[Rfam]
RNA sequence: CAUCCCAAGGAGCGCUGCAGCGGCCCGGCACUGUGCACAACAGUUCGCCACAGGUUGCCAGGCUUGGGUUUGCCAACCGCGCUCACUUGUC
Numbered sequence: 001c002a003u004c005c006c007a008a009g010g011a012g013c014g015c016u017g018c019a020g021c022g023g024c025c026c027g028g029c030a031c032u033g034u035g036c037a038c039a040a041c042a043g044u045u046c047g048c049c050a051c052a053g054g055u056u057g058c059c060a061g062g063c064u065u066g067g068g069u070u071u072g073c074c075a076a077c078c079g080c081g082c083u084c085a086c087u088u089g090u091c
Base pairs, nucleotide, nucleotide: 002070004068005067006066007065008064021057022056023055024054025053
Dot-bracket structure: .(.(((((............(((((...........................)))))......))))).).....................